[Rfam]
RNA: Small nucleolar RNA snR37
RNA sequence: AUCAUCAGUAGUGGUUAAUACUAUCUCAAGAUAAUAUUAAUUAAUUACAAUUUAUAGAAACCUAAUGUUUUGAUCAUUUUUAUUCUUCUGUUCGAUUUUACGUCUACGGAUGUUUUUUUGGGCUAGUUAAUACUGGAAUUUGAAUGGUUGAUUCAAUUCAUAUAACCCAUAUAGCUGAAUGGAUUUUGACUACCCCUAAACAAGGUGGGCACAAUAUCCAUUUCGUUUCCGGUUUCUUAGAUUAAUAUCUACUAUGAGGAAGGUCCUUCAAAUAAAAUAUUUUAAGGAAAGCUACAUGUUAUUCAGAGAAUUACGUCAUGUAAUUUGAGAGUUUGAUAUCUACAGUGUCUCUUCUUCAUGCUAGGACAUGC
Numbered sequence: 001a002u003c004a005u006c007a008g009u010a011g012u013g014g015u016u017a018a019u020a021c022u023a024u025c026u027c028a029a030g031a032u033a034a035u036a037u038u039a040a041u042u043a044a045u046u047a048c049a050a051u052u053u054a055u056a057g058a059a060a061c062c063u064a065a066u067g068u069u070u071u072g073a074u075c076a077u078u079u080u081u082a083u084u085c086u087u088c089u090g091u092u093c094g095a096u097u098u099u100a101c102g103u104c105u106a107c108g109g110a111u112g113u114u115u116u117u118u119u120g121g122g123c124u125a126g127u128u129a130a131u132a133c134u135g136g137a138a139u140u141u142g143a144a145u146g147g148u149u150g151a152u153u154c155a156a157u158u159c160a161u162a163u164a165a166c167c168c169a170u171a172u173a174g175c176u177g178a179a180u181g182g183a184u185u186u187u188g189a190c191u192a193c194c195c196c197u198a199a200a201c202a203a204g205g206u207g208g209g210c211a212c213a214a215u216a217u218c219c220a221u222u223u224c225g226u227u228u229c230c231g232g233u234u235u236c237u238u239a240g241a242u243u244a245a246u247a248u249c250u251a252c253u254a255u256g257a258g259g260a261a262g263g264u265c266c267u268u269c270a271a272a273u274a275a276a277a278u279a280u281u282u283u284a285a286g287g288a289a290a291g292c293u294a295c296a297u298g299u300u301a302u303u304c305a306g307a308g309a310a311u312u313a314c315g316u317c318a319u320g321u322a323a324u325u326u327g328a329g330a331g332u333u334u335g336a337u338a339u340c341u342a343c344a345g346u347g348u349c350u351c352u353u354c355u356u357c358a359u360g361c362u363a364g365g366a367c368a369u370g371c
Stems, first nucleotide, its partner, number of pairs: 008048005014041007022033004056237007067154001070151010082139005090123006100113005125134003177223007186214003190208005249364003253360001255358008264288005270282003290350002295347003301337002304335004308326007